[Rfam]
The family of this 154-nucleotide RNA from Amborella trichopoda is "MIR8565 microRNA precursor family".
RNA sequence: CAUACAUCCAUGUGUGUAGGACUCUAAAUGAUCACCAUUAAAUUUGACACAGAUCUCUAUAAAAGUUAUCAAUUGGGUGUGGGACUUGACUUUUUUAGAGAUCUGUGCCAAAUUUAAUGAUGAUCCUUUGGGAUCCUACAAACAUGGAUGUGAG
Numbered sequence: 001c002a003u004a005c006a007u008c009c010a011u012g013u014g015u016g017u018a019g020g021a022c023u024c025u026a027a028a029u030g031a032u033c034a035c036c037a038u039u040a041a042a043u044u045u046g047a048c049a050c051a052g053a054u055c056u057c058u059a060u061a062a063a064a065g066u067u068a069u070c071a072a073u074u075g076g077g078u079g080u081g082g083g084a085c086u087u088g089a090c091u092u093u094u095u096u097a098g099a100g101a102u103c104u105g106u107g108c109c110a111a112a113u114u115u116a117a118u119g120a121u122g123a124u125c126c127u128u129u130g131g132g133a134u135c136c137u138a139c140a141a142a143c144a145u146g147g148a149u150g151u152g153a154g
Stems, first nucleotide, its partner, number of pairs: 003152011015140007023132006030125003034121001036119011048107012061094008069082003